[Rfam]
This 52-nucleotide RNA sequence belongs to the Rfam family "6A RNA". The sequence is in the family's curated seed alignment.
RNA sequence: AGAUGUCUUCGUAGAGCCACGAAGACAUUAAAAUAAAGAAAGCUCGCUGAGA
Numbered sequence: 001a002g003a004u005g006u007c008u009u010c011g012u013a014g015a016g017c018c019a020c021g022a023a024g025a026c027a028u029u030a031a032a033a034u035a036a037a038g039a040a041a042g043c044u045c046g047c048u049g050a051g052a
Base pairs, nucleotide, nucleotide: 006025007024008023009022010021011020014045015044016043017042